Shown here is a 79-nucleotide RNA sequence from Phascolarctos cinereus, a member of the family "mir-130 microRNA precursor family".
Rfam 15.1 lists 2,580 matches to the family in 658 species.
Pairs were carried over by alignment from the consensus structure, which was predicted with PFOLD.
The literature on the family includes a 2003 paper in Dev Cell by Houbaviy et al., "Embryonic stem cell-specific MicroRNAs".

[Rfam]
RNA sequence: UGGUGGCCAGAGCCCUUUUCUUGUUGCCCUGCUGAGCCAGUGACGGGGCAGUGCAAUGUUAAAAGGGCAUUGGCCGCCA
Numbered sequence: 001u002g003g004u005g006g007c008c009a010g011a012g013c014c015c016u017u018u019u020c021u022u023g024u025u026g027c028c029c030u031g032c033u034g035a036g037c038c039a040g041u042g043a044c045g046g047g048g049c050a051g052u053g054c055a056a057u058g059u060u061a062a063a064a065g066g067g068c069a070u071u072g073g074c075c076g077c078c079a
Base pairs, nucleotide, nucleotide: 003078005075006074007073008072009071010070012068013067014066015065016064017063018062019061022058023057024056025055026054027053029051030050